[Rfam]
Shown here is a 106-nucleotide RNA sequence from Streptomyces coelicolor, a member of the family "TPP riboswitch aptamer (THI element)". Rfam links the family to the GO term thiamine pyrophosphate binding.
RNA sequence: AUAUUCCGACAGGGGAGCGCCACAGCGCUGAGAGUGCGGCACCGGCCGCAGACCCUCCGAACCUGGCCCAGGUCAUUCUGGGUAGGGAGAUCGGUCACCACUCGAG
Numbered sequence: 001a002u003a004u005u006c007c008g009a010c011a012g013g014g015g016a017g018c019g020c021c022a023c024a025g026c027g028c029u030g031a032g033a034g035u036g037c038g039g040c041a042c043c044g045g046c047c048g049c050a051g052a053c054c055c056u057c058c059g060a061a062c063c064u065g066g067c068c069c070a071g072g073u074c075a076u077u078c079u080g081g082g083u084a085g086g087g088a089g090a091u092c093g094g095u096c097a098c099c100a101c102u103c104g105a106g
Stems, first nucleotide, its partner, number of pairs: 006094004011056004017028004035050005062086004068081004